[Rfam]
The family of this 135-nucleotide RNA sequence from Populus trichocarpa is "MIR480 microRNA precursor family". The organism belongs to Populus, within Eukaryota. For this family Rfam cites "Novel and mechanical stress-responsive MicroRNAs in Populus trichocarpa that are absent from Arabidopsis" (Lu et al., Plant Cell, 2005).
Nucleotides: 135
Stems, first nucleotide, its partner, number of pairs: 004133001006131002012124001014122002018118002024113002027109001029107003
Number, partner (000 for none) and nucleotide at each position: 001000c002000a003000a004133a005000u006131a007130a008000u009000u010000u011000g012124u013000g014122g015121u016000g017000u018118g019117u020000u021000c022000u023000u024113a025112u026000u027109u028000a029107g030106u031105u032000a033000u034000g035000g036000c037000a038000c039000a040000g041000c042000c043000a044000c045000a046000c047000c048000u049000a050000a051000c052000u053000a054000u055000a056000a057000u058000u059000a060000u061000u062000u063000g064000u065000u066000a067000u068000c069000g070000c071000a072000g073000g074000u075000c076000g077000a078000c079000u080000a081000u082000a083000u084000u085000a086000u087000u088000a089000a090000c091000a092000u093000u094000g095000a096000a097000a098000a099000a100000c101000a102000u103000a104000u105031g106030a107029c108000a109027a110000u111000u112025a113024u114000u115000g116000u117019a118018u119000a120000a121015a122014c123000a124012a125000u126000a127000u128000c129000u130007u131006u132000u133004u134000g135000a